This 129-nucleotide RNA from Jaculus jaculus belongs to the Rfam family "Small nucleolar RNA SNORA33". The family's RNA type in Rfam is H/ACA-box small nucleolar RNA. It scores 119 bits against the family's covariance model. Rfam describes the family as follows. ACA33 is a member of the H/ACA class of snoRNA that guide the sites of modification of uridines to pseudouridines. The family's consensus secondary structure was predicted with PFOLD. Its family is annotated with nucleolus and RNA processing in the Gene Ontology.

RNA sequence: AAGCCAGCCAACUGGUCUGCUUAUCUGAACGUGUUUGUGCAGAAAUGUACAGAGAGCUGGCAACAGUGAUGCCAUCAUGAGCCUUAAGGACAGUUGAGGUCAUUAAGGUCCCUGAAAAUGGUUACAAUA
Numbered sequence: 001a002a003g004c005c006a007g008c009c010a011a012c013u014g015g016u017c018u019g020c021u022u023a024u025c026u027g028a029a030c031g032u033g034u035u036u037g038u039g040c041a042g043a044a045a046u047g048u049a050c051a052g053a054g055a056g057c058u059g060g061c062a063a064c065a066g067u068g069a070u071g072c073c074a075u076c077a078u079g080a081g082c083c084u085u086a087a088g089g090a091c092a093g094u095u096g097a098g099g100u101c102a103u104u105a106a107g108g109u110c111c112c113u114g115a116a117a118a119u120g121g122u123u124a125c126a127a128u129a
Stems, first nucleotide, its partner, number of pairs: 003061005016043005071122004081109007089101003